[Rfam]
RNA sequence: AUUUGGCUCUGAAAUCUUGCUGUGUAUAUUGAAAUCCAGCAAGUUUCAGAGCCUUCUG
Numbered sequence: 001a002u003u004u005g006g007c008u009c010u011g012a013a014a015u016c017u018u019g020c021u022g023u024g025u026a027u028a029u030u031g032a033a034a035u036c037c038a039g040c041a042a043g044u045u046u047c048a049g050a051g052c053c054u055u056c057u058g
Stems, first nucleotide, its partner, number of pairs: 005053010016043007024036001
A member of the RNA family "mir-7918 microRNA precursor family" from Panagrellus redivivus, 58 nucleotides long. Pairs were carried over by alignment from the consensus structure, which was predicted with RNAalifold. Lineage of the source: Eukaryota > Protostomia > Ecdysozoa > Panagrolaimidae > Panagrellus. The sequence is in the family's curated seed alignment.